[Rfam]
Rfam assigns this 61-nucleotide sequence from Sphingobium indicum to the family "terC RNA". A search with the family's covariance model found it, with a score of 64 bits. The source organism's lineage runs through Bacteria, Pseudomonadati, Pseudomonadota, Alphaproteobacteria and Sphingobium indicum.
RNA sequence: CGUGCGGGCCGGGCCCCUCUGGCGAUUGUCGGUAAGACAGUCGUGAUGUCGGACCGCAUCG
Numbered sequence: 001c002g003u004g005c006g007g008g009c010c011g012g013g014c015c016c017c018u019c020u021g022g023c024g025a026u027u028g029u030c031g032g033u034a035a036g037a038c039a040g041u042c043g044u045g046a047u048g049u050c051g052g053a054c055c056g057c058a059u060c061g
Stems, first nucleotide, its partner, number of pairs: 006055002009052004022044008
The base pairs follow the family's consensus structure, which is taken from published work.